[Rfam]
RNA sequence: CGAGUCGGCUGGACGGCCGCGUGGCGGCGCUCCGGCGUCGUCCCGAGGAACGUCCGGGCUCCGUAGGACGAGGUGGUGGGUAACGCCCACCCGGGGUGACCCGCGGGAAAGUGCCACAGAGAACAGACCGCCGCGUCGUGAAGGUCUCGACCGGAACGGCGCGGUAAGGGUGAAACGGUGGUGUAAGAGACCACCAGCGGGCCAGGUGACUGGCCCGGCUCGGUAAACCCCACCUGGAGCAAGGUCAGACAGGAUGCGUUCGAGGGUUGUCCGCCCGAGCAUCCGGGUAGACCGCUCGAGGCGCACGGCGACGUGCGUCCUAGAUGGAUGGCCGUCUCCUGCGCGUGGGUGACUGCGCGCGGUGACAGAACCCGGCGUACAGGCCGGCUCGUCCG
Numbered sequence: 001c002g003a004g005u006c007g008g009c010u011g012g013a014c015g016g017c018c019g020c021g022u023g024g025c026g027g028c029g030c031u032c033c034g035g036c037g038u039c040g041u042c043c044c045g046a047g048g049a050a051c052g053u054c055c056g057g058g059c060u061c062c063g064u065a066g067g068a069c070g071a072g073g074u075g076g077u078g079g080g081u082a083a084c085g086c087c088c089a090c091c092c093g094g095g096g097u098g099a100c101c102c103g104c105g106g107g108a109a110a111g112u113g114c115c116a117c118a119g120a121g122a123a124c125a126g127a128c129c130g131c132c133g134c135g136u137c138g139u140g141a142a143g144g145u146c147u148c149g150a151c152c153g154g155a156a157c158g159g160c161g162c163g164g165u166a167a168g169g170g171u172g173a174a175a176c177g178g179u180g181g182u183g184u185a186a187g188a189g190a191c192c193a194c195c196a197g198c199g200g201g202c203c204a205g206g207u208g209a210c211u212g213g214c215c216c217g218g219c220u221c222g223g224u225a226a227a228c229c230c231c232a233c234c235u236g237g238a239g240c241a242a243g244g245u246c247a248g249a250c251a252g253g254a255u256g257c258g259u260u261c262g263a264g265g266g267u268u269g270u271c272c273g274c275c276c277g278a279g280c281a282u283c284c285g286g287g288u289a290g291a292c293c294g295c296u297c298g299a300g301g302c303g304c305a306c307g308g309c310g311a312c313g314u315g316c317g318u319c320c321u322a323g324a325u326g327g328a329u330g331g332c333c334g335u336c337u338c339c340u341g342c343g344c345g346u347g348g349g350u351g352a353c354u355g356c357g358c359g360c361g362g363u364g365a366c367a368g369a370a371c372c373c374g375g376c377g378u379a380c381a382g383g384c385c386g387g388c389u390c391g392u393c394c395g
Base pairs, nucleotide, nucleotide: 001391002390003389004388005387006386007385008384009383010382011380012336013335014334015333016332017331018330020045021044023042024041025040026039027038028037050378051377052376054375055374056373057372058371059239060238061237062236066272067271068270069269071235072234073233074232075231076090077089078088079087080086091105092103093102094101095100106230107229111228112227113224114223115222128169129168130165131164132163133162134161135160136159137158138157177195178194179193180192181191182190197219198217199216200215201214202213203212204211205210243293244292245291246290252284253283254282255281256280257279264276265275266274267273300319301318302317303316304315305314306313307312
RNA: Bacterial RNase P class A